Shown here is a 75-nucleotide RNA from Synaphobranchus kaupii, a member of the family "mir-19 microRNA precursor family". For this family Rfam cites "Identification of novel genes coding for small expressed RNAs" (Lagos-Quintana et al., Science, 2001). The family's consensus secondary structure was predicted with RNAalifold. Lineage of the source: Eukaryota > Opisthokonta > Teleostei > Elopocephalai > Synaphobranchus. Rfam 15.1 lists 2,337 matches to the family in 651 species. It scores 65 bits against the family's covariance model.

RNA sequence: GCGCUCGGUUUUGCAGGUUUGCAUCCAGCUUGUGAAAAUUCUGCUGUGCAAAUCCAUGCAAAACUCGCCGUGCCC
Numbered sequence: 001g002c003g004c005u006c007g008g009u010u011u012u013g014c015a016g017g018u019u020u021g022c023a024u025c026c027a028g029c030u031u032g033u034g035a036a037a038a039u040u041c042u043g044c045u046g047u048g049c050a051a052a053u054c055c056a057u058g059c060a061a062a063a064c065u066c067g068c069c070g071u072g073c074c075c
Base pairs, nucleotide, nucleotide: 001071002070003069005067007065008064009063010062011061012060013059014058015057016055017054018052019051020050021049022048023047024046027045028044029043